[Rfam]
RNA sequence: GGAAAAUUGAGGGGUUCAGACCUUAGUACGAGAGGACCGGGUCUGACGCACCACUGGUGCAUCGGUUGUACUGUCAAGUGCAUGGCCGAGUAGCUAAGUGCGGACGGGAUAAGCGCUGAAAGCAUCUAAGCGCCAAGCCCUUCCCAAGAUGAGUUUUCCCUACAGGUUCGUGGAAGACCACCACGUUGAUAGGUCGCAGGUGUAAGUGCAGCAAUGUAUUGAGCCGAGCGAUACUAAUUACCAAUUG
Numbered sequence: 001g002g003a004a005a006a007u008u009g010a011g012g013g014g015u016u017c018a019g020a021c022c023u024u025a026g027u028a029c030g031a032g033a034g035g036a037c038c039g040g041g042u043c044u045g046a047c048g049c050a051c052c053a054c055u056g057g058u059g060c061a062u063c064g065g066u067u068g069u070a071c072u073g074u075c076a077a078g079u080g081c082a083u084g085g086c087c088g089a090g091u092a093g094c095u096a097a098g099u100g101c102g103g104a105c106g107g108g109a110u111a112a113g114c115g116c117u118g119a120a121a122g123c124a125u126c127u128a129a130g131c132g133c134c135a136a137g138c139c140c141u142u143c144c145c146a147a148g149a150u151g152a153g154u155u156u157u158c159c160c161u162a163c164a165g166g167u168u169c170g171u172g173g174a175a176g177a178c179c180a181c182c183a184c185g186u187u188g189a190u191a192g193g194u195c196g197c198a199g200g201u202g203u204a205a206g207u208g209c210a211g212c213a214a215u216g217u218a219u220u221g222a223g224c225c226g227a228g229c230g231a232u233a234c235u236a237a238u239u240a241c242c243a244a245u246u247g
Stems, first nucleotide, its partner, number of pairs: 001159008011145004017045007047102005055096003062089005067082006106140003113133005165242003169185005190236003193232005199225002206219005
The family of this 247-nucleotide part of an RNA from Akkermansia muciniphila is "Bacterial large subunit ribosomal RNA". Rfam's curators put it in the seed alignment. Lineage of the source: Bacteria > Verrucomicrobiota > Verrucomicrobiales > Akkermansiaceae > Akkermansia.